[Rfam]
RNA sequence: UUCGUCAACGGUAAAUGUCUGACCGAAACGAAGUGAAGGGAAUUUAAGGAGUUGACGAAUUCACUGCA
Dot-bracket structure: (((((((((.........................................))))))))).........
Background:
Shown here is a 68-nucleotide sequence from Cytobacillus horneckiae, a member of the family "Bacillus-plasmid RNA". A search with the family's covariance model found it, with a score of 50 bits. Lineage of the source: Bacteria > Bacillota > Bacilli > Caryophanales > Cytobacillus. Rfam 15.1 lists 155 matches to the family in 128 species. Pairs were carried over by alignment from the consensus structure, which is taken from published work.